RNA sequence: UUGAGAUGAUGAUUAAAAAUCUUGGUCUGUGUUUCUGAUUUAGAAAUGACAGAGAACAUAUUGAUUUUCUGAUCAA
Dot-bracket structure: ((((....................................................................))))

The record is a 76-nucleotide RNA sequence from Carex littledalei, which matches "Small nucleolar RNA SNORD18" in Rfam. On this family, see Prislei et al., Nucleic Acids Res 1993: "Two different snoRNAs are encoded in introns of amphibian and human L1 ribosomal protein genes". Pairs were carried over by alignment from the consensus structure, which was predicted with PFOLD. Rfam links the family to the GO terms RNA processing and nucleolus.